[Rfam]
RNA: SAM-I/IV (S-adenosyl methionine) riboswitch aptamer
RNA sequence: GCGCUGCAUUAAGAGUUGGGAAUUCCAUGCCAACCUGCUGAUUCAGUAAGGUGGACGGUUGAUAAAACCGAUGUGGUUCGGCUUGAUACCGAGCAAUCCAAACCCCGCUU
Numbered sequence: 001g002c003g004c005u006g007c008a009u010u011a012a013g014a015g016u017u018g019g020g021a022a023u024u025c026c027a028u029g030c031c032a033a034c035c036u037g038c039u040g041a042u043u044c045a046g047u048a049a050g051g052u053g054g055a056c057g058g059u060u061g062a063u064a065a066a067a068c069c070g071a072u073g074u075g076g077u078u079c080g081g082c083u084u085g086a087u088a089c090c091g092a093g094c095a096a097u098c099c100a101a102a103c104c105c106c107g108c109u110u
Base pairs, nucleotide, nucleotide: 006074007073008072009071010070015028017027018026019025020024030054031053034051035050036049037047038046039045076094077093078092079091080090081089